[Rfam]
SAM riboswitch aptamer (S box leader): a 121-nucleotide RNA from Chlorobium chlorochromatii. Taxonomically the source falls in Chlorobium chlorochromatii (Bacteria, Pseudomonadati, Chlorobiota, Chlorobium).
RNA sequence: CUAUCAUCCAGAAAGGUGGAGGGACUGGCCCAAAGAAGCCUUGGCAACCGUUAUUGUACUGCAAUAAUAGGUGCCAAUUCCAUCCUUAACAUGGUAACUACCUGUUAAGGAACGAUGAUGG
Numbered sequence: 001c002u003a004u005c006a007u008c009c010a011g012a013a014a015g016g017u018g019g020a021g022g023g024a025c026u027g028g029c030c031c032a033a034a035g036a037a038g039c040c041u042u043g044g045c046a047a048c049c050g051u052u053a054u055u056g057u058a059c060u061g062c063a064a065u066a067a068u069a070g071g072u073g074c075c076a077a078u079u080c081c082a083u084c085c086u087u088a089a090c091a092u093g094g095u096a097a098c099u100a101c102c103u104g105u106u107a108a109g110g111a112a113c114g115a116u117g118a119u120g121g
Base pairs, nucleotide, nucleotide: 001121002120003119004118005117006116007115008114013042014041015040016039017038021031022030023029026082027081028080043075044074045073046072048071049070050068051067052066053065054064055063084110085109086108087107088106089105090104091103